[Rfam]
RNA sequence: AAAAUCACAAGGCAGGGGAGACACCACAAUCCGGGAGCUGGUUUUCCCAGGGCGAGGCUCAUCUCCUGCGCUCCAGGUGUGCUGAGCCCUGUGAUAUCCCCAAAUGCAGGAAACUCGACUGCAUCACUUGUGGUAGUGGGGGACUGCAUUCAUUUCUAGUGGGAGGUGUCUCUG
Numbered sequence: 001a002a003a004a005u006c007a008c009a010a011g012g013c014a015g016g017g018g019a020g021a022c023a024c025c026a027c028a029a030u031c032c033g034g035g036a037g038c039u040g041g042u043u044u045u046c047c048c049a050g051g052g053c054g055a056g057g058c059u060c061a062u063c064u065c066c067u068g069c070g071c072u073c074c075a076g077g078u079g080u081g082c083u084g085a086g087c088c089c090u091g092u093g094a095u096a097u098c099c100c101c102a103a104a105u106g107c108a109g110g111a112a113a114c115u116c117g118a119c120u121g122c123a124u125c126a127c128u129u130g131u132g133g134u135a136g137u138g139g140g141g142g143a144c145u146g147c148a149u150u151c152a153u154u155u156c157u158a159g160u161g162g163g164a165g166g167u168g169u170c171u172c173u174g
Base pairs, nucleotide, nucleotide: 012122013121014120015119016048017047018046019045020044021043023042024041025040026039049090050089051088052087056083057082058081060079061078062077063076064075092117093116094115095113097111099109147174148173
The family of this 174-nucleotide sequence from Burhinus bistriatus is "U1 spliceosomal RNA". The organism belongs to Burhinus, within Eukaryota. The family's consensus secondary structure is taken from published work.